[Rfam]
RNA: SAM-I/IV (S-adenosyl methionine) riboswitch aptamer
RNA sequence: GCGUUGCAUUAAGAGUUGGGGAUUCCAUGCCAACCUGCUUGUCGGCGGCAGCCGCAAGUAAGGUGGACGACGGUAAAAGUCGAUGUGGCUCGCAAGAGCAAUCCAAACCCGCCUGA
Numbered sequence: 001g002c003g004u005u006g007c008a009u010u011a012a013g014a015g016u017u018g019g020g021g022a023u024u025c026c027a028u029g030c031c032a033a034c035c036u037g038c039u040u041g042u043c044g045g046c047g048g049c050a051g052c053c054g055c056a057a058g059u060a061a062g063g064u065g066g067a068c069g070a071c072g073g074u075a076a077a078a079g080u081c082g083a084u085g086u087g088g089c090u091c092g093c094a095a096g097a098g099c100a101a102u103c104c105a106a107a108c109c110c111g112c113c114u115g116a
Stems, first nucleotide, its partner, number of pairs: 006086005015028001017027004030066002034063003037059003041112002088099004